[Rfam]
RNA sequence: GCCUGUUUAGCUCAGUCGGUAGAGCACUUCGUUGGUAACGAAGAGGUCACCAGUUCGAAUCUGGUAGCAGGCA
Number, nucleotide and partner (000 for none) at each position: 001g072002c071003c070004u069005g068006u067007u066008u000009a000010g025011c024012u023013c022014a000015g000016u000017c000018g000019g000020u000021a000022g013023a012024g011025c010026a000027c043028u042029u041030c040031g039032u000033u000034g000035g000036u000037a000038a000039c031040g030041a029042a028043g027044a000045g000046g000047u000048c000049a065050c064051c063052a062053g061054u000055u000056c000057g000058a000059a000060u000061c053062u052063g051064g050065u049066a007067g006068c005069a004070g003071g002072c001073a000
This 73-nucleotide RNA sequence from Ellagibacter isourolithinifaciens belongs to the Rfam family "tRNA".
The match comes from Rfam's covariance-model search (73 bits).
About the family: Transfer RNA (tRNA) molecules are approximately 80 nucleotides in length.
It is annotated as a transfer RNA.
NCBI's taxonomy places the organism under Bacteria, Bacillati, Coriobacteriia, Eggerthellales, Ellagibacter.